The record is a 150-nucleotide sequence from Sapajus apella, which matches "U12 minor spliceosomal RNA" in Rfam.
Rfam classes the family as a spliceosomal small nuclear RNA.
The pairing is the family consensus, mapped onto this sequence.
A reference for the family is Tarn and Steitz (1997), "Pre-mRNA splicing: the discovery of a new spliceosome doubles the challenge", Trends Biochem Sci.
RNA sequence: AUGCCUUAAAUUUAUGAUUAAGGAAAAUAAUGAUUCAGGGUGAUGCCUGAAUCCUCACUGCUAAUGUGAGACGAAUUUUUGAGCUGGUAAAGGUUGCCCCUGAGGUGAACUGCCUACUUUGUGGGAUGCCUGGGAGCCAAGAUCUGCCUG
Numbered sequence: 001a002u003g004c005c006u007u008a009a010a011u012u013u014a015u016g017a018u019u020a021a022g023g024a025a026a027a028u029a030a031u032g033a034u035u036c037a038g039g040g041u042g043a044u045g046c047c048u049g050a051a052u053c054c055u056c057a058c059u060g061c062u063a064a065u066g067u068g069a070g071a072c073g074a075a076u077u078u079u080u081g082a083g084c085u086g087g088u089a090a091a092g093g094u095u096g097c098c099c100c101u102g103a104g105g106u107g108a109a110c111u112g113c114c115u116a117c118u119u120u121g122u123g124g125g126a127u128g129c130c131u132g133g134g135a136g137c138c139a140a141g142a143u144c145u146g147c148c149u150g
Stems, first nucleotide, its partner, number of pairs: 004023005032053008054070005084150001086148003091145005100134002103131005110124004